[Rfam]
RNA sequence: UUGAGGAGUCAGGGGCGCAAAACGAAUAAGUACGGGAUCUGAGCAGUUGGGGGCUAUGAAGUUUCCGGAAAGGUCAAUUUGCCGAAGCGGACGAUUUACCCAAUAAAUCAUUUGCUGGGUUAAUGUUGAAUAAGCAUUAAACUGUCACUACUAAAUAUAAGGUAGUGGAGUACUAUUCCGACC
Numbered sequence: 001u002u003g004a005g006g007a008g009u010c011a012g013g014g015g016c017g018c019a020a021a022a023c024g025a026a027u028a029a030g031u032a033c034g035g036g037a038u039c040u041g042a043g044c045a046g047u048u049g050g051g052g053g054c055u056a057u058g059a060a061g062u063u064u065c066c067g068g069a070a071a072g073g074u075c076a077a078u079u080u081g082c083c084g085a086a087g088c089g090g091a092c093g094a095u096u097u098a099c100c101c102a103a104u105a106a107a108u109c110a111u112u113u114g115c116u117g118g119g120u121u122a123a124u125g126u127u128g129a130a131u132a133a134g135c136a137u138u139a140a141a142c143u144g145u146c147a148c149u150a151c152u153a154a155a156u157a158u159a160a161g162g163u164a165g166u167g168g169a170g171u172a173c174u175a176u177u178c179c180g181a182c183c
Stems, first nucleotide, its partner, number of pairs: 006178004011174002017082005024075002033067005039061002086116006093109005117143002120140008145168007
RNA: Lysine riboswitch aptamer
Organism: Scopulibacillus darangshiensis